[Rfam]
This 127-nucleotide sequence from Perca flavescens belongs to the Rfam family "U4atac minor spliceosomal RNA". On this family, see Shukla et al., Nucleic Acids Res 2002: "Domains of human U4atac snRNA required for U12-dependent splicing in vivo". Pairs were carried over by alignment from the consensus structure, which is taken from published work. NCBI's taxonomy places the organism under Eukaryota, Opisthokonta, Metazoa, Euacanthomorphacea, Perca. Clan: U4 clan. It scores 82 bits against the family's covariance model. Rfam 15.1 lists 1,648 matches to the family in 818 species.
RNA sequence: GCUUUCCUUGUCUUGGAGUGAGUGAGCUGCUCAAUGAAUGUCUAGUGAGAGUAGCCCUGCUGACACCGUAAUAACACAUAUGCAUCACCUGGGCUCCUGUCCAGAACAAGGUGCAAUUUUUGGAAAC
Numbered sequence: 001g002c003u004u005u006c007c008u009u010g011u012c013u014u015g016g017a018g019u020g021a022g023u024g025a026g027c028u029g030c031u032c033a034a035u036g037a038a039u040g041u042c043u044a045g046u047g048a049g050a051g052u053a054g055c056c057c058u059g060c061u062g063a064c065a066c067c068g069u070a071a072u073a074a075c076a077c078a079u080a081u082g083c084a085u086c087a088c089c090u091g092g093g094c095u096c097c098u099g100u101c102c103a104g105a106a107c108a109a110g111g112u113g114c115a116a117u118u119u120u121u122g123g124a125a126a127c
Stems, first nucleotide, its partner, number of pairs: 006018001008016002022060003026055007038046002082114005089104006